This 89-nucleotide sequence from Triticum urartu belongs to the Rfam family "Small nucleolar RNA snoR14". It is annotated as a C/D-box small nucleolar RNA. Its family is annotated with RNA processing and nucleolus in the Gene Ontology. A search with the family's covariance model found it, with a score of 70 bits. The source organism's lineage runs through Eukaryota, Viridiplantae, Euphyllophyta, Triticeae and Triticum. Its Rfam clan is "SNORD110 clan".
[Rfam]
RNA sequence: GCGAGGUGAUGAUGUUAUGUAUGAUAGUCUGUCAAUCCCCUGAUGUCACAAAGUGAAGACACACAUGCAUCCCGACAGGCUCUGAUCGC
Numbered sequence: 001g002c003g004a005g006g007u008g009a010u011g012a013u014g015u016u017a018u019g020u021a022u023g024a025u026a027g028u029c030u031g032u033c034a035a036u037c038c039c040c041u042g043a044u045g046u047c048a049c050a051a052a053g054u055g056a057a058g059a060c061a062c063a064c065a066u067g068c069a070u071c072c073c074g075a076c077a078g079g080c081u082c083u084g085a086u087c088g089c
Base pairs, nucleotide, nucleotide: 001089002088003087004086